Shown here is a 162-nucleotide sequence from Vagococcus salmoninarum, a member of the family "glmS glucosamine-6-phosphate activated ribozyme aptamer".
Rfam classes the family as a riboswitch.
It scores 90 bits against the family's covariance model.
Its family is annotated with regulation of gene expression and catalytic activity in the Gene Ontology.
NCBI's taxonomy places the organism under Bacteria, Bacillati, Bacillota, Enterococcaceae, Vagococcus.
RNA sequence: UUAUAAAGGAUAGCGCCAGACCUAUUACUGUGGUUCAAGCGUAAUUAGGUGACGAGGAGAGAGUUUAUCGAAAAUUCGGCGGAUGACUCUAGGGACUGUACUCUAAAGAAGUAGUUAAAAAAUAGCUGGAAAGUUAUAACAAAAACUAAUUCAAGCAGAUAG
Number, nucleotide and partner (000 for none) at each position: 001u000002u000003a000004u000005a000006a000007a000008g000009g000010a000011u000012a000013g000014c000015g000016c000017c000018a000019g000020a050021c049022c048023u047024a046025u000026u044027a000028c000029u041030g000031u000032g000033g000034u000035u000036c000037a000038a000039g000040c000041g029042u000043a000044a026045u000046u024047a023048g022049g021050u020051g000052a000053c000054g000055a000056g000057g000058a000059g000060a090061g089062a088063g087064u086065u000066u000067a000068u079069c078070g077071a076072a000073a000074a000075u000076u071077c070078g069079g068080c000081g000082g000083a000084u000085g000086a064087c063088u062089c061090u060091a104092g103093g102094g101095a000096c000097u000098g000099u000100a000101c094102u093103c092104u091105a000106a000107a000108g152109a151110a150111g000112u148113a147114g146115u000116u000117a000118a000119a000120a000121a000122a137123u136124a135125g134126c133127u132128g000129g000130a000131a000132a127133g126134u125135u124136a123137u122138a000139a000140c000141a000142a000143a000144a000145a000146c114147u113148a112149a000150u110151u109152c108153a000154a000155g000156c000157a000158g000159a000160u000161a000162g000